This 450-nucleotide part of an RNA from Methylobrevis albus belongs to the Rfam family "Bacterial large subunit ribosomal RNA". The match comes from Rfam's covariance-model search (2721 bits). The family's consensus secondary structure is taken from published work.
[Rfam]
RNA sequence: CUCCGCGAAAUCUAUUUAGGUAGAGCGUCGAACGAAUACCCCUGGGGGUAGAGCACUGGAUGGGCAAGGGGGACCUACAGUCUUACCGAUCCCAACCAAACUCCGAAUACCAGGGAGUACUAUUCGGCAGUCACACGGCGGGUGCUAACGUCCGUCGUGAAGAGGGAAACAACCCUGACCGCCAGCUAAGGUCCCCAAGUGACGGCUAAGUGUGAAACGAUGUGAGAAUCCCAAAACAACCAGGAUGUUGGCUUAGAAGCAGCCAUCAUUUAAAGAAAGCGUAACAGCUCACUGGUCUAAACAAGGGUUCUUGCGCGGACAAUGUAACGGGGCUCAAGCCGUCCACCGAAGCUGCGGGUGUGAUCCUUACGGAUCACGCGGUAGCGGAGCGUUCCGUAGGCCUGUGAAGCGGUAGCCGUGAGGCGCCGUGGAGGUAUCGGAAGUGAGAAU
Numbered sequence: 001c002u003c004c005g006c007g008a009a010a011u012c013u014a015u016u017u018a019g020g021u022a023g024a025g026c027g028u029c030g031a032a033c034g035a036a037u038a039c040c041c042c043u044g045g046g047g048g049u050a051g052a053g054c055a056c057u058g059g060a061u062g063g064g065c066a067a068g069g070g071g072g073a074c075c076u077a078c079a080g081u082c083u084u085a086c087c088g089a090u091c092c093c094a095a096c097c098a099a100a101c102u103c104c105g106a107a108u109a110c111c112a113g114g115g116a117g118u119a120c121u122a123u124u125c126g127g128c129a130g131u132c133a134c135a136c137g138g139c140g141g142g143u144g145c146u147a148a149c150g151u152c153c154g155u156c157g158u159g160a161a162g163a164g165g166g167a168a169a170c171a172a173c174c175c176u177g178a179c180c181g182c183c184a185g186c187u188a189a190g191g192u193c194c195c196c197a198a199g200u201g202a203c204g205g206c207u208a209a210g211u212g213u214g215a216a217a218c219g220a221u222g223u224g225a226g227a228a229u230c231c232c233a234a235a236a237c238a239a240c241c242a243g244g245a246u247g248u249u250g251g252c253u254u255a256g257a258a259g260c261a262g263c264c265a266u267c268a269u270u271u272a273a274a275g276a277a278a279g280c281g282u283a284a285c286a287g288c289u290c291a292c293u294g295g296u297c298u299a300a301a302c303a304a305g306g307g308u309u310c311u312u313g314c315g316c317g318g319a320c321a322a323u324g325u326a327a328c329g330g331g332g333c334u335c336a337a338g339c340c341g342u343c344c345a346c347c348g349a350a351g352c353u354g355c356g357g358g359u360g361u362g363a364u365c366c367u368u369a370c371g372g373a374u375c376a377c378g379c380g381g382u383a384g385c386g387g388a389g390c391g392u393u394c395c396g397u398a399g400g401c402c403u404g405u406g407a408a409g410c411g412g413u414a415g416c417c418g419u420g421a422g423g424c425g426c427c428g429u430g431g432a433g434g435u436a437u438c439g440g441a442a443g444u445g446a447g448a449a450u
Stems, first nucleotide, its partner, number of pairs: 001389006011024005026130001027128006036121001040115006051104001052102002057098003061094004068087002070084005134159010164175003179357004184353003190347003199344001201343006218317002222314010239296005245269003250264003270274001275290001279288002358379008390445001392442005400435003409429005415424003
Dot-bracket structure: ((((((....(((((....))))).(((((((...(...((((((.....(((...(((.((((...(((((((.....))))).))...)))).)))..)).).....)))))).....).)))))).)...((((((((((......))))))))))....(((......)))...((((.(((...(((......(.((((((...........((..((((((((((.......(((((.(((..(((.........)))..)))(...)(...((......)).).)))))........)))))))))).))....................))))))))))...)))))))((((((((......))))))))....))))))(.(((((...(((......(((((.(((....))))))))...)))..)))))..).....